[Rfam]
Rfam assigns this 140-nucleotide RNA from Castor canadensis to the family "U12 minor spliceosomal RNA".
Gene Ontology terms of the family: U12 snRNP, mRNA branch site recognition and pre-mRNA branch point binding.
For this family Rfam cites "The divergent U12-type spliceosome is required for pre-mRNA splicing and is essential for development in Drosophila" (Otake et al., Mol Cell, 2002).
It scores 62 bits against the family's covariance model.
The family has 62 seed sequences and 2,106 matches in Rfam 15.1.

RNA sequence: GUGCCGUAAACUUGUGAGGAAAAUAAUGACUCAGGGUGACACCUGCAUUUCACUGCCAGAGUGAAACAAAUUUUGGAGCGGGUAAAGGCCAUCCCUAAGGUGACCCGUCCACCUUGCAGGCUACCUGGAGUAGUGAUCUG
Numbered sequence: 001g002u003g004c005c006g007u008a009a010a011c012u013u014g015u016g017a018g019g020a021a022a023a024u025a026a027u028g029a030c031u032c033a034g035g036g037u038g039a040c041a042c043c044u045g046c047a048u049u050u051c052a053c054u055g056c057c058a059g060a061g062u063g064a065a066a067c068a069a070a071u072u073u074u075g076g077a078g079c080g081g082g083u084a085a086a087g088g089c090c091a092u093c094c095c096u097a098a099g100g101u102g103a104c105c106c107g108u109c110c111a112c113c114u115u116g117c118a119g120g121c122u123a124c125c126u127g128g129a130g131u132a133g134u135g136a137u138c139u140g
Stems, first nucleotide, its partner, number of pairs: 004019002007016002029048001032045004049065005083140001086139003090135003095128002098126005104120002107117002
The organism belongs to Castor, within Eukaryota. Its Rfam clan is "U2 clan".